Annotation:
A member of the RNA family "Bacterial RNase P class B" from Fructilactobacillus florum, 382 nucleotides long. Rfam links the family to the GO terms dimeric ribonuclease P complex, ribonuclease P activity and tRNA processing. It is annotated as a ribozyme. Rfam's curators write: Ribonuclease P (RNase P) is a ubiquitous endoribonuclease, found in archaea, bacteria and eukarya as well as chloroplasts and mitochondria. Its best characterised activity is the generation of mature 5'-ends of tRNAs by cleaving the 5'-leader elements of precursor-tRNAs. Cellular RNase Ps are ribonucleoproteins. RNA from bacterial RNase Ps retains its catalytic activity in the absence of the protein subunit, i.e. it is a ribozyme. The base pairs follow the family's consensus structure, which is taken from published work. The literature on the family includes a 1998 paper in Annu Rev Biochem by Frank and Pace, "Ribonuclease P: unity and diversity in a tRNA processing ribozyme".
Nucleotides: 382
Stems, first nucleotide, its partner, number of pairs: 004382003007378001008329007016037006042376003046373003051238005056073006079233005084105001086103004106123001107121006124228002127169004135160004142154003175226002177222003191210008242259003263295007296314006331361008
Number, partner (000 for none) and nucleotide at each position: 001000g002000g003000u004382c005381c006380u007378g008329a009328g010327u011326a012325a013324u014323c015000g016037c017036g018035g019034u020033u021032a022000g023000c024000c025000u026000a027000c028000g029000g030000g031000c032021u033020g034019g035018c036017u037016g038000a039000g040000g041000a042376a043375a044374g045000u046373c047372c048371a049000c050000u051238c052237u053236c054235g055234c056073a057072c058071a059070a060069g061068c062000u063000g064000u065000g066000a067000u068061g069060c070059u071058u072057g073056u074000a075000g076000u077000g078000u079233u080232c081231g082230u083229g084105c085000c086103c087102g088101g089100u090000g091000a092000a093000a094000a095000a096000a097000u098000a099000a100089g101088c102087c103086g104000a105084g106123g107121g108120a109119c110118u111117g112116u113000u114000u115000a116112a117111c118110a119109g120108u121107u122000a123106c124228g125227g126000c127169g128168a129167a130166a131000g132000a133000g134000g135160c136159a137158g138157c139000u140000a141000a142154g143153g144152a145000u146000u147000u148000u149000u150000a151000a152144u153143c154142u155000a156000u157138g158137u159136u160135g161000u162000a163000g164000u165000a166130u167129u168128u169127c170000c171000u172000a173000a174000g175226g176225u177222g178221c179220u180000a181000u182000a183000g184000a185000g186000a187000c188000g189000a190000u191210u192209g193208a194207u195206u196205c197204a198203a199000g200000a201000a202000a203198u204197u205196g206195a207194a208193u209192c210191a211000c212000u213000g214000g215000a216000a217000c218000g219000c220179a221178g222177u223000a224000a225176a226175c227125c228124c229083c230082g231081c232080g233079a234055g235054c236053g237052g238051g239000a240000a241000a242259c243258c244257c245000a246000a247000a248000c249000u250000u251000u252000u253000g254000g255000u256000a257244g258243g259242g260000g261000a262000g263295c264294u265293u266292u267291a268290c269289a270000c271000a272000c273000g274000g275000a276000a277000a278000u279000c280000a281000g282000a283000a284000c285000u286000a287000a288000g289269u290268g291267u292266a293265g294264g295263g296314c297313a298312a299311g300310a301309a302000u303000c304000a305000a306000u307000g308000a309301u310300u311299c312298u313297u314296g315000a316000g317000a318000u319000a320000g321000a322000u323014g324013a325012u326011u327010a328009c329008u330000a331361c332360u333359c334358a335357a336356u337355u338354a339000u340000u341000g342000u343000u344000c345000c346000u347000g348000a349000u350000a351000c352000u353000u354338u355337a356336a357335u358334u359333g360332a361331g362000c363000a364000c365000a366000a367000a368000a369000c370000a371048u372047g373046g374044c375043u376042u377000a378007c379000a380006g381005g382004g